[Rfam]
RNA sequence: AUAGUGACUCCACUCUAGCUAGUUAAGCUUGCUAAGAGAAUAACGGUAUCCUGGAACUCCUAAAACAUGUUACUACAAGACAAGUCUUGAUAACAAUAUAACUUUUAGCUAAGAAUAACUAACAGCAACAUCAAAAAGAGGAUUUAUGAAA
Numbered sequence: 001a002u003a004g005u006g007a008c009u010c011c012a013c014u015c016u017a018g019c020u021a022g023u024u025a026a027g028c029u030u031g032c033u034a035a036g037a038g039a040a041u042a043a044c045g046g047u048a049u050c051c052u053g054g055a056a057c058u059c060c061u062a063a064a065a066c067a068u069g070u071u072a073c074u075a076c077a078a079g080a081c082a083a084g085u086c087u088u089g090a091u092a093a094c095a096a097u098a099u100a101a102c103u104u105u106u107a108g109c110u111a112a113g114a115a116u117a118a119c120u121a122a123c124a125g126c127a128a129c130a131u132c133a134a135a136a137a138g139a140g141g142a143u144u145u146a147u148g149a150a151a
Stems, first nucleotide, its partner, number of pairs: 004147004009142003018126003021120005028113003031109008041072005053060002076089005131139002
Streptococcus sRNA SSRC30: a 151-nucleotide RNA sequence from Streptococcus pyogenes. By type it is a small RNA. A reference for the family is Tesorero et al. (2013), "Novel Regulatory Small RNAs in Streptococcus pyogenes", PLoS One. The base pairs follow the family's consensus structure, which was predicted with CMfinder.